About this RNA: A member of the RNA family "c-di-GMP-I riboswitch aptamer" from Candidatus Atribacteria bacterium MT.SAG.1, 86 nucleotides long.

[Rfam]
RNA sequence: AGUUGAAAAAGGCAAACUGACCGAAAGGGCAGGACGCAAAGUUAUGGGUCUAAGGCAUUUUAUGCUAUGAUCGCCAAACCACCAAC
Numbered sequence: 001a002g003u004u005g006a007a008a009a010a011g012g013c014a015a016a017c018u019g020a021c022c023g024a025a026a027g028g029g030c031a032g033g034a035c036g037c038a039a040a041g042u043u044a045u046g047g048g049u050c051u052a053a054g055g056c057a058u059u060u061u062a063u064g065c066u067a068u069g070a071u072c073g074c075c076a077a078a079c080c081a082c083c084a085a086c
Stems, first nucleotide, its partner, number of pairs: 012037002017032003021028002041079003045076003048071003055065004